[Rfam]
RNA: mir-29 microRNA precursor family
RNA sequence: GGAAGCUGGUUUCUUGUGGUGACUUAGAUUUAUCCAUCGCUGCAUCUAGCACCAUUUGAAAUCAGUGUUCU
Numbered sequence: 001g002g003a004a005g006c007u008g009g010u011u012u013c014u015u016g017u018g019g020u021g022a023c024u025u026a027g028a029u030u031u032a033u034c035c036a037u038c039g040c041u042g043c044a045u046c047u048a049g050c051a052c053c054a055u056u057u058g059a060a061a062u063c064a065g066u067g068u069u070c071u
Stems, first nucleotide, its partner, number of pairs: 001071004005066009016055006025048004